A member of the RNA family "Editing element of GABA-3 exon 9" from Xenopus tropicalis, 54 nucleotides long. The source organism's lineage runs through Eukaryota, Teleostomi, Euteleostomi, Amphibia and Silurana. It scores 72 bits against the family's covariance model.

RNA sequence: AAGGUGGCCUAUGCAACAGCAAUGGACUGGUUUAUAGCCGUUUGUUAUGCCUUU
Numbered sequence: 001a002a003g004g005u006g007g008c009c010u011a012u013g014c015a016a017c018a019g020c021a022a023u024g025g026a027c028u029g030g031u032u033u034a035u036a037g038c039c040g041u042u043u044g045u046u047a048u049g050c051c052u053u054u
Stems, first nucleotide, its partner, number of pairs: 001054003006051003010047002013045002015042003019038002022035005